[Rfam]
RNA sequence: UUAAGUUAACUACAUAAAAUAUGCCAUCUUCUUUAACUAUACGCAUUCGCCUCAAUAUGCCGUAAAACCUCAAGCAUUUUCUACUUGAGGUUGAUGCGUAUAAUUAAAGGAGAUGACAUAUUUUAUGUGAUUAACUUAAUU
Dot-bracket structure: (((((((((.(((((((((((((.(..(((((((((.((((((((((.((((((...............................)))))).)))))))))).)))))))))..).))))))))))))).)))))))))..
RNA: MIR7993 microRNA precursor family